[Rfam]
RNA sequence: GAAGUUCUGUUAUACACUCAGGCUGUGGCUCUCUGAAAGUCAGUGCAUCACAGAACUUUGU
Numbered sequence: 001g002a003a004g005u006u007c008u009g010u011u012a013u014a015c016a017c018u019c020a021g022g023c024u025g026u027g028g029c030u031c032u033c034u035g036a037a038a039g040u041c042a043g044u045g046c047a048u049c050a051c052a053g054a055a056c057u058u059u060g061u
Base pairs, nucleotide, nucleotide: 001059002058003057004056005055006054007053008052009051015045016044017043018042021041022040023039024038
RNA: mir-148/mir-152 microRNA precursor family